Rfam assigns this 135-nucleotide RNA from Streptococcus sp. X16XC17 to the family "FMN riboswitch aptamer (RFN element)".
A search with the family's covariance model found it, with a score of 116 bits.
Pairs were carried over by alignment from the consensus structure, which is taken from published work.
About the family: The RFN element is a highly conserved domain that is found frequently in the 5'-untranslated regions of prokaryotic mRNAs that encode for flavin mononucleotide (FMN) biosynthesis and transport proteins. This element is a metabolite-dependent riboswitch that directly binds FMN in the absence of proteins. In Bacillus subtilis, the riboswitch most likely controls gene expression by causing premature transcription termination within the 5' untranslated region of the ribDEAHT operon and precluding access to the ribosome-binding site of ypaA mRNA.The FMN riboswitch structure, reported in present an FMN-bound six-stem junction, adopts a butterfly-like scaffold, stapled together by opposingly directed but nearly identically folded peripheral domains.

RNA sequence: AAUAGUCUUCAGGGCAGGGUGUAAGUCCCUACCGGCGGUGAUUGUCUCUACAUCUGAGAUAUAAGUCCGCGAGCGCAAGCUGACUUGGUGUGAUUCCAAGACCGACAGUUAUAGUCUGGAUGGGAGAAGACGAAA
Numbered sequence: 001a002a003u004a005g006u007c008u009u010c011a012g013g014g015c016a017g018g019g020u021g022u023a024a025g026u027c028c029c030u031a032c033c034g035g036c037g038g039u040g041a042u043u044g045u046c047u048c049u050a051c052a053u054c055u056g057a058g059a060u061a062u063a064a065g066u067c068c069g070c071g072a073g074c075g076c077a078a079g080c081u082g083a084c085u086u087g088g089u090g091u092g093a094u095u096c097c098a099a100g101a102c103c104g105a106c107a108g109u110u111a112u113a114g115u116c117u118g119g120a121u122g123g124g125a126g127a128a129g130a131c132g133a134a135a
Stems, first nucleotide, its partner, number of pairs: 003133001005131006017029003031115002033104002035070004065102002073080002084100005106118003